RNA sequence: GCAGGUGGAGAUGCAGUUGCUGUACUGAAUGUACAGAGGAAAGUCCGGACACCACAGGGUGUGAUGGUCGCUAACGGCGACCCGUCGUGAGGCGAGGGAAAGUGCCACAGAAAACAGACCGCCGAAGAUCCCUUAAAAAGGGUAGUCGGUAAGGGUGAAAAGGUGGGGUAAGAGCCCACCGCUCCUUCCGUGAGGAUAGGAGGCAUGGCAAACCCCAUCAGGUGCAAUGCCAAAUAGACAGGCGUUUGAGGGUGACCCGCCCGAUGCCUGCGGGUAGGCAGCAGGAUUUAGUCAGCAAUGACUAAACAAGAUGAAUAACUGCAUAAAACAGAAUCCGGCUUAUCUCCACCUGCUGAU
Numbered sequence: 001g002c003a004g005g006u007g008g009a010g011a012u013g014c015a016g017u018u019g020c021u022g023u024a025c026u027g028a029a030u031g032u033a034c035a036g037a038g039g040a041a042a043g044u045c046c047g048g049a050c051a052c053c054a055c056a057g058g059g060u061g062u063g064a065u066g067g068u069c070g071c072u073a074a075c076g077g078c079g080a081c082c083c084g085u086c087g088u089g090a091g092g093c094g095a096g097g098g099a100a101a102g103u104g105c106c107a108c109a110g111a112a113a114a115c116a117g118a119c120c121g122c123c124g125a126a127g128a129u130c131c132c133u134u135a136a137a138a139a140g141g142g143u144a145g146u147c148g149g150u151a152a153g154g155g156u157g158a159a160a161a162g163g164u165g166g167g168g169u170a171a172g173a174g175c176c177c178a179c180c181g182c183u184c185c186u187u188c189c190g191u192g193a194g195g196a197u198a199g200g201a202g203g204c205a206u207g208g209c210a211a212a213c214c215c216c217a218u219c220a221g222g223u224g225c226a227a228u229g230c231c232a233a234a235u236a237g238a239c240a241g242g243c244g245u246u247u248g249a250g251g252g253u254g255a256c257c258c259g260c261c262c263g264a265u266g267c268c269u270g271c272g273g274g275u276a277g278g279c280a281g282c283a284g285g286a287u288u289u290a291g292u293c294a295g296c297a298a299u300g301a302c303u304a305a306a307c308a309a310g311a312u313g314a315a316u317a318a319c320u321g322c323a324u325a326a327a328a329c330a331g332a333a334u335c336c337g338g339c340u341u342a343u344c345u346c347c348a349c350c351u352g353c354u355g356a357u
Base pairs, nucleotide, nucleotide: 001353002352003351004350005349006348007347008346009345010344011343012323013322014321015320016319017318018317020036021035022034023033024032025031041341042340043339045338046337047336048335049334050224051223052222053221057258058257059256060255062220063219064218065217066216067081068080069079070078071077082096083094084093085092086091097215098214102213103212104209105208106207119154120153121150122149123148124147125146128143129142130141131140162180163179164178165177166176167175181204182202183201184200185199186198187196188195189194228280229279230278231277239270240269241268242267243266250262251261252260253259287306288305289304290303291302292301293300294299

The record is a 357-nucleotide RNA sequence from Calditerrivibrio nitroreducens, which matches "Bacterial RNase P class A" in Rfam.
A search with the family's covariance model found it, with a score of 312 bits.